[Rfam]
RNA: 7SK RNA
RNA sequence: AGAUGUGGGGGUGGUCUGGCUGUGAAAUCCAUAACCUCAUUGACGGCCAGGGUGUAUUUGUCUGAUCUGGCUGGCUGAGUGGGUGUCCCCUUCUUCCCUCACUGCUUUGUGAGUCCCACCCAGAGCUGUGCACUCGGUCAAAGAGAAUUAAUUCCCUGAUAGAGACGCACAUUCAUACAGUAGCUGUGCUCCCCUGCUAGAACCUCCAAGAAAGUUCUGUAAUGCUAUGAGAUAAAUCUUUACUGAAUAGAUGGAAGAGUUGAAAUUCCUCCUGAGAAAACUGAUUCAGCGCAGUCGCUUCCUGAAUU
Dot-bracket structure: (((.(((((((.((...((....((.((((((..(((((..((..(.(...........).)...)))))..))....)))))).)).)).))..)))))))...)))......(.(.(((.(.(.......)).))(((....(.(.....).).)))..).)..)...............(((...((.((.(.(.......(.(..(.(((........................))).).).)..)).)).)))))......................(((((.(.((....)).)...)))))